This 84-nucleotide sequence from Theropithecus gelada belongs to the Rfam family "mir-548 microRNA precursor family".
The literature on the family includes a 2010 paper in BMC Biol by Witten et al., "Ultra-high throughput sequencing-based small RNA discovery and discrete statistical biomarker analysis in a collection of cervical tumours and matched controls".
The family's consensus secondary structure was predicted with WAR.
Lineage of the source: Eukaryota > Tetrapoda > Amniota > Cercopithecinae > Theropithecus.
RNA sequence: UGUUAGGUUGGUGCAUAAGUAAUUGCGGUUUUUGCCAUUAAAAAGAAUGGCAAAAACCACAAUUACUUAUGCACCAACCUAAUA
Dot-bracket structure: (((((((((((((((((((((((((.(((((((((((((......))))))))))))).)))))))))))))))))))))))))
Numbered sequence: 001u002g003u004u005a006g007g008u009u010g011g012u013g014c015a016u017a018a019g020u021a022a023u024u025g026c027g028g029u030u031u032u033u034g035c036c037a038u039u040a041a042a043a044a045g046a047a048u049g050g051c052a053a054a055a056a057c058c059a060c061a062a063u064u065a066c067u068u069a070u071g072c073a074c075c076a077a078c079c080u081a082a083u084a
Stems, first nucleotide, its partner, number of pairs: 001084025027058013